[Rfam]
RNA sequence: UUAAUACGGACGAUGUUACCUCAUAUAUACUCGAUAAUAUGGAUCGAGAGUUUCUACCCGGCAACCUUAAAUUGCUGGACUAUGGGGAAAACUAAUGAAUAU
Numbered sequence: 001u002u003a004a005u006a007c008g009g010a011c012g013a014u015g016u017u018a019c020c021u022c023a024u025a026u027a028u029a030c031u032c033g034a035u036a037a038u039a040u041g042g043a044u045c046g047a048g049a050g051u052u053u054c055u056a057c058c059c060g061g062c063a064a065c066c067u068u069a070a071a072u073u074g075c076u077g078g079a080c081u082a083u084g085g086g087g088a089a090a091a092c093u094a095a096u097g098a099a100u101a102u
Stems, first nucleotide, its partner, number of pairs: 019087007030048006058078007
Dot-bracket structure: ..................(((((((....((((((.......)))))).........(((((((.......)))))))..)))))))...............
The family of this 102-nucleotide RNA sequence from Bacillus anthracis is "Purine riboswitch aptamer".
It is one of the family's seed sequences.
Lineage of the source: Bacteria > Bacilli > Bacillaceae > Bacillus > Bacillus anthracis.